[Rfam]
RNA sequence: ACAGUGCCACGGCCGUCUGAGCUAAACGCAACCCAAUAAAAAACAAAGGCGCAGAUUCUGCGCCUUUUUU
Numbered sequence: 001a002c003a004g005u006g007c008c009a010c011g012g013c014c015g016u017c018u019g020a021g022c023u024a025a026a027c028g029c030a031a032c033c034c035a036a037u038a039a040a041a042a043a044c045a046a047a048g049g050c051g052c053a054g055a056u057u058c059u060g061c062g063c064c065u066u067u068u069u070u
Base pairs, nucleotide, nucleotide: 002019003018004017006013007012045067046066047065048064049063050062051061052060053059054058
Shown here is a 70-nucleotide sequence from Pseudescherichia vulneris, a member of the family "Salmonella enterica sRNA STnc40".
The family's consensus secondary structure was predicted with LocARNA.
It scores 66 bits against the family's covariance model.
By type it is a small RNA.